[Rfam]
RNA sequence: CAGUUAGGGGAAUGAUGUACUACCGGCGGGCUAUUAAGCUUCAGGCUUUUCUUGAUAUGGCAAAUGAAAAGGGUAAAUG
Dot-bracket structure: ((.(((...................................................................))).))
Source information
The record is a 79-nucleotide sequence from Vigna angularis, which matches "Small nucleolar RNA J33" in Rfam. The base pairs follow the family's consensus structure. NCBI's taxonomy places the organism under Eukaryota, Viridiplantae, Streptophyta, fabids, Vigna angularis. A reference for the family is Chen et al. (2003), "The high diversity of snoRNAs in plants: identification and comparative study of 120 snoRNA genes from Oryza sativa", Nucleic Acids Res.